[Rfam]
RNA sequence: CCUCGUAGGCCUGCUGCGGCGAGAUGAAGUGGAUGUGCGAGUCCACGCCGCCGGCGGUGAGGAUGAGCCCCUCGCCGGCGAUGCACUCCGUGCCGGGUCCGAUCGUCAUCCCCGGCGUCACCCCCGCCAUCGCGUCGGGGUUGCCCGCCUUGCCGAGGGCCGCGAUCCGGCCGCCGCGGAUGCCCACGUCCGCUUUGGUGACGCCGCCCUGAUCCAGCACGAGCGCGUUGGUGAUGACGAGGUCGAGCACCUCCUCCGGCGGCGCGCCGGCCGCCUGCCCCAUCCCGUCGCGCAGG
Numbered sequence: 001c002c003u004c005g006u007a008g009g010c011c012u013g014c015u016g017c018g019g020c021g022a023g024a025u026g027a028a029g030u031g032g033a034u035g036u037g038c039g040a041g042u043c044c045a046c047g048c049c050g051c052c053g054g055c056g057g058u059g060a061g062g063a064u065g066a067g068c069c070c071c072u073c074g075c076c077g078g079c080g081a082u083g084c085a086c087u088c089c090g091u092g093c094c095g096g097g098u099c100c101g102a103u104c105g106u107c108a109u110c111c112c113c114g115g116c117g118u119c120a121c122c123c124c125c126g127c128c129a130u131c132g133c134g135u136c137g138g139g140g141u142u143g144c145c146c147g148c149c150u151u152g153c154c155g156a157g158g159g160c161c162g163c164g165a166u167c168c169g170g171c172c173g174c175c176g177c178g179g180a181u182g183c184c185c186a187c188g189u190c191c192g193c194u195u196u197g198g199u200g201a202c203g204c205c206g207c208c209c210u211g212a213u214c215c216a217g218c219a220c221g222a223g224c225g226c227g228u229u230g231g232u233g234a235u236g237a238c239g240a241g242g243u244c245g246a247g248c249a250c251c252u253c254c255u256c257c258g259g260c261g262g263c264g265c266g267c268c269g270g271c272c273g274c275c276u277g278c279c280c281c282a283u284c285c286c287g288u289c290g291c292g293c294a295g296g
Base pairs, nucleotide, nucleotide: 001296002295003294008289009288012164013163014162016160017159018076019075020074021073022072023071030053031052032051034050035049037048038047039046057069077154078153081150083148084147090144091143092142094140097136099134104132105131108130109129112126114124115123170279172277173276176274177273178272179271181269182268183266184264191227192226193225195223196222206215229262231260234255236253237252241251242250
Dot-bracket structure: (((....((..(((.((((((((......(((.((.(((......))))))))...(...........).))))))((..(.((.....(((.(..(.(....((..((..(.((.......)).)..)))).).)...).)))..)).)..))....)).))).....(.((..((((.((((......(((.((.........(........)......)).))).(.(..(.((...((.......)))).)....).).).).)).)))).)).)........))....)))
The record is a 296-nucleotide RNA from Anaeromyxobacter sp. Fw109-5, which matches "5' ureB small RNA" in Rfam.
Taxonomically the source falls in Anaeromyxobacter (Bacteria, Pseudomonadati, Myxococcia, Myxococcales).
The literature on the family includes a 2013 paper in J Bacteriol by Wen et al., "Helicobacter pylori 5'ureB-sRNA, a cis-encoded antisense small RNA, negatively regulates ureAB expression by transcription termination".